[Rfam]
RNA sequence: AACUCAUCAAGAGCGGUAGAGGGAACUGGCCCGAGGAAGCCGCAGCAACCAUUCUUUUUAGAACCGGUGCUAAUUCCAACAGCAGCAGCUGACAGAUGAGAG
Numbered sequence: 001a002a003c004u005c006a007u008c009a010a011g012a013g014c015g016g017u018a019g020a021g022g023g024a025a026c027u028g029g030c031c032c033g034a035g036g037a038a039g040c041c042g043c044a045g046c047a048a049c050c051a052u053u054c055u056u057u058u059u060a061g062a063a064c065c066g067g068u069g070c071u072a073a074u075u076c077c078a079a080c081a082g083c084a085g086c087a088g089c090u091g092a093c094a095g096a097u098g099a100g101a102g
Stems, first nucleotide, its partner, number of pairs: 003100006013043005021032003027078003044071004049067002052063004075094001080091004
The record is a 102-nucleotide RNA sequence from Dialister sp. CAG:357, which matches "SAM riboswitch aptamer (S box leader)" in Rfam. The organism belongs to Dialister, within Bacteria. The SAM riboswitch is found upstream of a number of genes which code for proteins involved in methionine or cysteine biosynthesis in Gram-positive bacteria. The SAM riboswitch acts at the level of transcription termination control. The predicted structure consists of a complex stem-loop region followed by a single stem loop terminator region.